[Rfam]
RNA sequence: UAUUGUUUUAGUUAGGUGAGGCUCCUAUAUGGAUAUACGCUACUGCCCGGAAACAUCGAGAGAUGCCAAUGGGUCAACAGGUACUACCGAAUUAAGGUUUUAUCUAAUGUAGCUAGACAUAGUUCUAAAGCUAUAUAGUGCUAAAACUCAACGAAGUAUUAACUGA
Numbered sequence: 001u002a003u004u005g006u007u008u009u010a011g012u013u014a015g016g017u018g019a020g021g022c023u024c025c026u027a028u029a030u031g032g033a034u035a036u037a038c039g040c041u042a043c044u045g046c047c048c049g050g051a052a053a054c055a056u057c058g059a060g061a062g063a064u065g066c067c068a069a070u071g072g073g074u075c076a077a078c079a080g081g082u083a084c085u086a087c088c089g090a091a092u093u094a095a096g097g098u099u100u101u102a103u104c105u106a107a108u109g110u111a112g113c114u115a116g117a118c119a120u121a122g123u124u125c126u127a128a129a130g131c132u133a134u135a136u137a138g139u140g141c142u143a144a145a146a147c148u149c150a151a152c153g154a155a156g157u158a159u160u161a162a163c164u165g166a
Stems, first nucleotide, its partner, number of pairs: 006161001009158002011152002013095001015148003020142003025138008039113005045074005054065004080104004086098003115126003

Description: Shown here is a 166-nucleotide sequence from Clostridium tetanomorphum, a member of the family "M-box riboswitch aptamer (ykoK leader)". Gene Ontology terms of the family: response to magnesium ion and regulation of gene expression.